[Rfam]
This 35-nucleotide RNA from Pipistrellus kuhlii belongs to the Rfam family "Iron response element I". Rfam 15.1 lists 6,829 matches to the family in 599 species. The family's RNA type in Rfam is cis-regulatory element. Its family is annotated with response to iron ion in the Gene Ontology.

Nucleotides: 035
Stems, first nucleotide, its partner, number of pairs: 002034003006031003010028001012027005017021001
Number, partner (000 for none) and nucleotide at each position: 001000c002034u003033g004032u005000c006031u007030c008029u009000u010028g011000c012027u013026c014025c015024a016023a017021c018000c019000g020000u021017g022000u023016u024015u025014g026013g027012a028010c029008a030007g031006a032004a033003c034002a035000u